RNA sequence: AGCCAAUGACAGGGGCGUUUGUUGUAAAAGACGAGCUGAGAAGCACCCUUUGAACCUGAACCAGAUCAUGCUGGCGGAGGGAGUCGGUCGAGCGGCACU
Numbered sequence: 001a002g003c004c005a006a007u008g009a010c011a012g013g014g015g016c017g018u019u020u021g022u023u024g025u026a027a028a029a030g031a032c033g034a035g036c037u038g039a040g041a042a043g044c045a046c047c048c049u050u051u052g053a054a055c056c057u058g059a060a061c062c063a064g065a066u067c068a069u070g071c072u073g074g075c076g077g078a079g080g081g082a083g084u085c086g087g088u089c090g091a092g093c094g095g096c097a098c099u
Stems, first nucleotide, its partner, number of pairs: 007086004011049004016043001017036007055080003061074004
RNA: TPP riboswitch aptamer (THI element)
Organism: Rhizobium oryziradicis